Shown here is a 72-nucleotide sequence from Caenorhabditis remanei, a member of the family "mir-239 microRNA precursor family". Pairs were carried over by alignment from the consensus structure, which was predicted with RNAalifold. It is one of the family's seed sequences. The organism belongs to Caenorhabditis, within Eukaryota.
RNA sequence: CGAUUUUUGUACUACACAUAGGUACUGGACACUGAGAUUUGUAUCCAGAAUCUAUUCUAGUGCAAAAAUUGC
Numbered sequence: 001c002g003a004u005u006u007u008u009g010u011a012c013u014a015c016a017c018a019u020a021g022g023u024a025c026u027g028g029a030c031a032c033u034g035a036g037a038u039u040u041g042u043a044u045c046c047a048g049a050a051u052c053u054a055u056u057c058u059a060g061u062g063c064a065a066a067a068a069u070u071g072c
Stems, first nucleotide, its partner, number of pairs: 003069010016056001019054005025048003029042002